[Rfam]
The record is a 69-nucleotide RNA from Sorex araneus, which matches "Small Nucleolar RNA SNORD64" in Rfam. For this family Rfam cites "The IC-SNURF-SNRPN transcript serves as a host for multiple small nucleolar RNA species and as an antisense RNA for UBE3A" (Runte et al., Hum Mol Genet, 2001).
RNA sequence: GAAUUCAUGAUGAGCUAUGUCUACUGAGCAUGAUGAAGUAAAGCUCGGUGUUUGAGUGCUCUGAAGUCC
Number, nucleotide and partner (000 for none) at each position: 001g069002a000003a067004u066005u065006c000007a000008u000009g000010a000011u000012g061013a060014g059015c000016u000017a000018u000019g000020u055021c054022u000023a000024c000025u047026g046027a045028g044029c043030a000031u000032g000033a000034u000035g000036a000037a000038g000039u000040a000041a000042a000043g029044c028045u027046c026047g025048g000049u000050g000051u000052u000053u000054g021055a020056g000057u000058g000059c014060u013061c012062u000063g000064a000065a005066g004067u003068c000069c001
The family's RNA type in Rfam is C/D-box small nucleolar RNA. The family is grouped with related families in Rfam's "SNORD74 clan". Pairs were carried over by alignment from the consensus structure, which was predicted with RNAalifold. Rfam links the family to the GO terms RNA processing and nucleolus. The organism belongs to Sorex, within Eukaryota. The sequence is in the family's curated seed alignment.